[Rfam]
A member of the RNA family "IS605-orfB-II RNA", 147 nucleotides long.

RNA sequence: CAUGAUUAGUUUAGCUAGGAUUGUUUAGAGGGUAGUCGCAGUCGCCCCAACUCCGAUUCACAAACUAUUUUUAUUGGUCUUGUGAGUAGGGUGAGAAACAACAUCUUGUUGGAAACUUUAAUCUUUUUUUAAAAAAUAAGGAACUGU
Number, nucleotide and partner (000 for none) at each position: 001c000002a000003u000004g000005a000006u018007u017008a016009g015010u014011u000012u000013a000014g010015c009016u008017a007018g006019g000020a000021u000022u000023g000024u000025u000026u000027a000028g000029a000030g047031g046032g045033u044034a000035g000036u000037c000038g147039c146040a145041g144042u000043c000044g033045c032046c031047c030048c000049a000050a000051c095052u094053c093054c000055g000056a087057u086058u085059c084060a083061c082062a081063a080064a000065c076066u000067a074068u073069u000070u000071u000072u000073a068074u067075u000076g065077g000078u000079c000080u063081u062082g061083u060084g059085a058086g057087u056088a000089g000090g000091g000092u000093g053094a052095g051096a000097a000098a000099c111100a110101a109102c108103a107104u000105c000106u000107u103108g102109u101110u100111g099112g000113a000114a000115a000116c141117u140118u139119u138120a137121a000122u135123c000124u133125u000126u000127u000128u000129u000130u000131a000132a000133a124134a000135a122136a000137u120138a119139a118140g117141g116142a000143a000144c041145u040146g039147u038

By type it is a small RNA.